RNA: mir-208 microRNA precursor family
RNA sequence: UCUAACAGAGAAACUUUUUGUUUGCUUUUAUGUUUUGGAUUGGAAUAUAUAAGACGAACAAAAGGUUUCUCUGUUGGCAG
Number, nucleotide and partner (000 for none) at each position: 001u000002c000003u076004a075005a074006c073007a000008g071009a070010g000011a068012a067013a066014c065015u064016u063017u062018u061019u000020g059021u000022u000023u056024g055025c000026u000027u000028u052029u051030a050031u049032g048033u047034u000035u000036u000037g000038g000039a000040u000041u000042g000043g000044a000045a000046u000047a033048u032049a031050u030051a029052a028053g000054a000055c024056g023057a000058a000059c020060a000061a018062a017063a016064g015065g014066u013067u012068u011069c000070u009071c008072u000073g006074u005075u004076g003077g000078c000079a000080g000